[Rfam]
RNA: U12 minor spliceosomal RNA
RNA sequence: GUGCUUAAAUUAAUGAGUAAGGAAAAUAUCAAGUCUUGGUAAUGCUUGACUUAUAGUAAAAACUUACCAAUUUUUGAAAGGCAAUAGGUCGUCCCUGCCAGCCUUGUCGAAAGAUGGGGCAGGUGGGUGCAGCGAUCUGCCA
Numbered sequence: 001g002u003g004c005u006u007a008a009a010u011u012a013a014u015g016a017g018u019a020a021g022g023a024a025a026a027u028a029u030c031a032a033g034u035c036u037u038g039g040u041a042a043u044g045c046u047u048g049a050c051u052u053a054u055a056g057u058a059a060a061a062a063c064u065u066a067c068c069a070a071u072u073u074u075u076g077a078a079a080g081g082c083a084a085u086a087g088g089u090c091g092u093c094c095c096u097g098c099c100a101g102c103c104u105u106g107u108c109g110a111a112a113g114a115u116g117g118g119g120c121a122g123g124u125g126g127g128u129g130c131a132g133c134g135a136u137c138u139g140c141c142a
Stems, first nucleotide, its partner, number of pairs: 004021004031052005038045001053065001057061001080141003086138007094127002097124003101120001103118005